[Rfam]
RNA sequence: GGAUGUGAGGGUAAUCUGGCUGUGAGAUCUGAUAUACCACUGAUUGUCAGGUCGAUUUGACUGCUCUGGCUAGCUUAGGCGGGUGUCCCCUUUCUUCCUCAGUAUUCCAUGCGUGUUCCCCCUGGAGCUGUGUGCCUGGUUAAUGAGGACAGCCUUCCCAGCAGACACGGCACUGUUUGCUGGUCAGGGGUGUGUGGUGGCUGUGCUCCCCUGCUGGAAGCUCUAGGUAAGCUCAAGGUCUGUUUGUAGAAGAACGUGGGGUAGUCAAACAACACUAAAGACAAUCCAAAUGAGAAGCUCCAUGCAGCAGUCUGCCAGUGGCU
Number, nucleotide and partner (000 for none) at each position: 001g108002g107003a106004u000005g000006u101007g100008a099009g098010g097011g096012u000013a093014a092015u000016c000017u000018g090019g089020c000021u000022g000023u000024g087025a086026g000027a084028u083029c082030u081031g080032a000033u078034a000035u073036a000037c069038c068039a067040c000041u000042g066043a065044u000045u063046g061047u060048c059049a000050g000051g000052u000053c000054g000055a000056u000057u000058u000059g048060a047061c046062u000063g045064c000065u043066c042067u039068g038069g037070c000071u000072a000073g035074c000075u000076u000077a000078g033079g000080c031081g030082g029083g028084u027085g000086u025087c024088c000089c019090c018091u000092u014093u013094c000095u000096u011097c010098c009099u008100c007101a006102g000103u000104a000105u000106u003107c002108c001109a000110u000111g000112c000113g000114u000115g000116u170117u169118c000119c000120c000121c164122c139123u138124g137125g136126a000127g135128c134129u000130g000131u000132g000133u000134g128135c127136c125137u124138g123139g122140u161141u160142a000143a000144u000145g000146a000147g158148g157149a156150c000151a000152g000153c000154c000155u000156u149157c148158c147159c000160a141161g140162c000163a000164g121165a000166c000167a000168c000169g117170g116171c000172a000173c000174u000175g000176u000177u000178u000179g000180c000181u000182g000183g000184u000185c000186a000187g000188g000189g000190g000191u000192g000193u000194g000195u000196g000197g000198u000199g000200g270201c000202u268203g000204u000205g000206c264207u263208c000209c261210c260211c259212u258213g257214c256215u000216g000217g000218a000219a000220g000221c252222u251223c000224u249225a000226g000227g247228u246229a245230a244231g243232c000233u000234c000235a000236a000237g000238g000239u000240c000241u000242g000243u231244u230245u229246g228247u227248a000249g224250a000251a222252g221253a000254a000255c000256g214257u213258g212259g211260g210261g209262u000263a207264g206265u000266c000267a000268a202269a000270c200271a000272a000273c000274a000275c000276u000277a000278a000279a000280g000281a000282c000283a000284a000285u000286c000287c000288a323289a000290a000291u000292g000293a000294g316295a000296a000297g311298c310299u309300c000301c307302a000303u000304g000305c000306a000307g301308c000309a299310g298311u297312c000313u000314g000315c000316c294317a000318g000319u000320g000321g000322c000323u288